[Rfam]
About this RNA: Small nucleolar RNA SNORD24: a 78-nucleotide RNA sequence from Nephila pilipes. Rfam links the family to the GO terms nucleolus and RNA processing. For this family Rfam cites "Intron-encoded, antisense small nucleolar RNAs: the characterization of nine novel species points to their direct role as guides for the 2'-O-ribose methylation of rRNAs" (Nicoloso et al., J Mol Biol, 1996). Rfam 15.1 lists 2,843 matches to the family in 1,188 species. NCBI's taxonomy places the organism under Eukaryota, Bilateria, Araneae, Araneoidea, Nephila.
RNA sequence: UGCUUGUGAUGAAAUAAUUUGCUACUCUUGAAUACCAAUGAUGAAGCAAAUAACCACCAUUAUAUUUGACCUGAAGCA
Numbered sequence: 001u002g003c004u005u006g007u008g009a010u011g012a013a014a015u016a017a018u019u020u021g022c023u024a025c026u027c028u029u030g031a032a033u034a035c036c037a038a039u040g041a042u043g044a045a046g047c048a049a050a051u052a053a054c055c056a057c058c059a060u061u062a063u064a065u066u067u068g069a070c071c072u073g074a075a076g077c078a
Stems, first nucleotide, its partner, number of pairs: 001078004
Dot-bracket structure: ((((......................................................................))))